Shown here is a 140-nucleotide RNA from Pampusana beccarii, a member of the family "Small Cajal body specific RNA 11". It scores 72 bits against the family's covariance model. Gene Ontology terms of the family: Cajal body, RNA processing and nucleolus. scaRNAs are a specific class of small nuclear RNAs which localise to the Cajal bodies and guide the modification of RNA polymerase II transcribed spliceosomal RNAs U1, U2, U4, U5 and U12. ACA57 belongs to the H/ACA box class of guide RNAs as it has the predicted hairpin-hinge-hairpin-tail structure, conserved H/ACA-box motifs and is found associated with GAR1. ACA57 is predicted to guide the pseudouridylation of the U5 spliceosomal RNA at position U43. NCBI's taxonomy places the organism under Eukaryota, Chordata, Dinosauria, Coelurosauria, Pampusana. For this family Rfam cites "Cajal body-specific small nuclear RNAs: a novel class of 2'-O-methylation and pseudouridylation guide RNAs" (Darzacq et al., EMBO J, 2002).

RNA sequence: GUGUCCUGACCCCAUCCUGGCUGUUCCCCUCACCGGACCUGUGGUGGUGGGGUUUGGGGGUGGACGCACAUCAACUUACCUCUCAUGUUAGGAGGGCUGCUAGAGACGUGUGUAGGCCCUUAAAGGCAAGAGAGGACACU
Numbered sequence: 001g002u003g004u005c006c007u008g009a010c011c012c013c014a015u016c017c018u019g020g021c022u023g024u025u026c027c028c029c030u031c032a033c034c035g036g037a038c039c040u041g042u043g044g045u046g047g048u049g050g051g052g053u054u055u056g057g058g059g060g061u062g063g064a065c066g067c068a069c070a071u072c073a074a075c076u077u078a079c080c081u082c083u084c085a086u087g088u089u090a091g092g093a094g095g096g097c098u099g100c101u102a103g104a105g106a107c108g109u110g111u112g113u114a115g116g117c118c119c120u121u122a123a124a125g126g127c128a129a130g131a132g133a134g135g136a137c138a139c140u
Base pairs, nucleotide, nucleotide: 002066003065004064005063006062010059011058026052027051028049030047031046032045033044079135080134081133082132083131084130088125089124092121093120094119095118096117097116098115099113100112104109